[Rfam]
RNA sequence: UAAUUUCAUACGCCGAAUUUCCAUAGGAAAGCGGGGGAACCAUAUCCAUGGGGUGAAUUUUGCCGGGAAGCCCGAAAGGGCCGGGGCGAAUAGGGUGCCUGUACAUCCGAAUCCGACAGCUAACCUCGUAGGCGAAGAGCAGGAACCA
Numbered sequence: 001u002a003a004u005u006u007c008a009u010a011c012g013c014c015g016a017a018u019u020u021c022c023a024u025a026g027g028a029a030a031g032c033g034g035g036g037g038a039a040c041c042a043u044a045u046c047c048a049u050g051g052g053g054u055g056a057a058u059u060u061u062g063c064c065g066g067g068a069a070g071c072c073c074g075a076a077a078g079g080g081c082c083g084g085g086g087c088g089a090a091u092a093g094g095g096u097g098c099c100u101g102u103a104c105a106u107c108c109g110a111a112u113c114c115g116a117c118a119g120c121u122a123a124c125c126u127c128g129u130a131g132g133c134g135a136a137g138a139g140c141a142g143g144a145a146c147c148a
Base pairs, nucleotide, nucleotide: 011134012133013132014131018030019029020028031129032128033127034126035125036124041050042049051114052113053112059090060089061088062087063086064085093108094107095106096105
Source information: Rfam assigns this 148-nucleotide RNA from Paenibacillus lutrae to the family "c-di-AMP riboswitch aptamer (ydaO/yuaA leader)".